[Rfam]
Description
Shown here is a 112-nucleotide RNA sequence from Microcebus murinus, a member of the family "Y RNA". Lineage of the source: Eukaryota > Teleostomi > Dipnotetrapodomorpha > Theria > Microcebus. By type it is a non-coding RNA gene.

RNA sequence: AGCUGGUCCGAAGGUAGAGAGUUAUCUCACUUGAUUGUUCACAGUCGGUUACAGAUCGAACUCCUUGUUCUACAAUUUCCCCCUUCCCACUACUGCACUUGACUAGUCUUUU
Numbered sequence: 001a002g003c004u005g006g007u008c009c010g011a012a013g014g015u016a017g018a019g020a021g022u023u024a025u026c027u028c029a030c031u032u033g034a035u036u037g038u039u040c041a042c043a044g045u046c047g048g049u050u051a052c053a054g055a056u057c058g059a060a061c062u063c064c065u066u067g068u069u070c071u072a073c074a075a076u077u078u079c080c081c082c083c084u085u086c087c088c089a090c091u092a093c094u095g096c097a098c099u100u101g102a103c104u105a106g107u108c109u110u111u112u
Stems, first nucleotide, its partner, number of pairs: 002107007010100002014096002016091002019088001021086001044073002047070001